[Rfam]
Chlorobi-1 RNA: a 69-nucleotide sequence from Prosthecochloris sp. CIB 2401. Rfam classes the family as a small RNA. The base pairs follow the family's consensus structure, which is taken from published work.
RNA sequence: GAAAAGCCUCAUGCCCGUGAGGUGGAGCAGGUGUAAUGGGGGACAUCUGCUCAUAUAAAAAAAGCAGUC
Numbered sequence: 001g002a003a004a005a006g007c008c009u010c011a012u013g014c015c016c017g018u019g020a021g022g023u024g025g026a027g028c029a030g031g032u033g034u035a036a037u038g039g040g041g042g043a044c045a046u047c048u049g050c051u052c053a054u055a056u057a058a059a060a061a062a063a064g065c066a067g068u069c
Stems, first nucleotide, its partner, number of pairs: 006023007025052010